Rfam assigns this 173-nucleotide RNA from Digitaria exilis to the family "MIR2118 microRNA precursor family". A search with the family's covariance model found it, with a score of 124 bits. Its family is annotated with RISC complex and miRNA-mediated post-transcriptional gene silencing in the Gene Ontology. The organism belongs to Digitaria, within Eukaryota.
Nucleotides: 173
Stems, first nucleotide, its partner, number of pairs: 010163004015158003021154002026149008037138011049125003053121001055120007
Number, partner (000 for none) and nucleotide at each position: 001000g002000c003000c004000a005000g006000g007000a008000a009000u010163a011162g012161g013160a014000a015158g016157a017156a018000a019000g020000a021154g022153a023000a024000u025000a026149u027148c028147u029146a030145a031144g032143a033142g034000a035000a036000a037138u038137g039136g040135g041134a042133a043132u044131g045130g046129g047128a048000a049125c050124a051123u052000g053121g054000a055120g056119g057118a058117a059116a060115g061114c062000a063000u064000g065000a066000g067000a068000a069000c070000u071000c072000u073000c074000u075000g076000u077000u078000u079000u080000u081000u082000a083000a084000c085000u086000c087000g088000a089000g090000a091000a092000u093000c094000a095000g096000a097000u098000a099000c100000a101000a102000a103000u104000g105000u106000g107000u108000c109000u110000u111000a112000g113000c114061g115060u116059u117058u118057u119056c120055c121053u122000g123051a124050u125049g126000c127000c128047u129046c130045c131044c132043a133042u134041u135040c136039c137038u138037a139000c140000c141000g142033u143032u144031u145030u146029u147028a148027g149026g150000u151000g152000c153022u154021c155000c156017u157016u158015c159000c160013u161012c162011u163010u164000u165000c166000u167000c168000c169000g170000a171000a172000g173000a